This 165-nucleotide part of an RNA from Rhodotorula toruloides belongs to the Rfam family "Eukaryotic small subunit ribosomal RNA".

RNA sequence: CCGCCCGUCGCUACUACCGAUUGAAUGGCUUAGUGAGGCCUCCGGAUUGGCUAUCGGGAGCUCGCGAGAGCACCUGACUGCCGAGAAGUUGUACGAACUUGGUCAUUUAGAGGAAGUAAAAGUCGUAACAAGGUUUCCGUAGGUGAACCUGCGGAAGGAUCAUUA
Numbered sequence: 001c002c003g004c005c006c007g008u009c010g011c012u013a014c015u016a017c018c019g020a021u022u023g024a025a026u027g028g029c030u031u032a033g034u035g036a037g038g039c040c041u042c043c044g045g046a047u048u049g050g051c052u053a054u055c056g057g058g059a060g061c062u063c064g065c066g067a068g069a070g071c072a073c074c075u076g077a078c079u080g081c082c083g084a085g086a087a088g089u090u091g092u093a094c095g096a097a098c099u100u101g102g103u104c105a106u107u108u109a110g111a112g113g114a115a116g117u118a119a120a121a122g123u124c125g126u127a128a129c130a131a132g133g134u135u136u137c138c139g140u141a142g143g144u145g146a147a148c149c150u151g152c153g154g155a156a157g158g159a160u161c162a163u164u165a
Stems, first nucleotide, its partner, number of pairs: 001132001003129001006125002009122001012118004017113002021109001023108008032099003037094001040091001043088001047084005054077004060071003134157010

Overview:
For this family Rfam cites "Crystal structure of the ribosome at 5.5 A resolution" (Yusupov et al., Science, 2001).